The record is a 95-nucleotide RNA sequence from Limnohabitans sp. B9-3, which matches "SAH (S-adenosyl-L-homocysteine) riboswitch aptamer" in Rfam. Taxonomically the source falls in Limnohabitans (Bacteria, Pseudomonadota, Burkholderiales, Comamonadaceae). The family's consensus secondary structure is taken from published work. It scores 54 bits against the family's covariance model.
[Rfam]
Nucleotides: 095
Stems, first nucleotide, its partner, number of pairs: 003065006021053006
Number, partner (000 for none) and nucleotide at each position: 001000a002000c003065u004064c005063c006062c007061a008060a009000g010000g011000a012000g013000c014000g015000u016000u017000g018000c019000a020000g021053c022052u023051u024050c025049a026048c027000c028000c029000g030000u031000c032000c033000u034000c035000u036000c037000a038000g039000g040000a041000c042000u043000c044000g045000c046000g047000c048026g049025u050024g051023a052022a053021g054000u055000c056000a057000g058000g059000c060008u061007u062006g063005g064004g065003g066000c067000c068000g069000a070000a071000u072000c073000u074000u075000u076000u077000g078000c079000a080000a081000c082000g083000a084000c085000g086000c087000u088000c089000a090000c091000c092000u093000g094000u095000u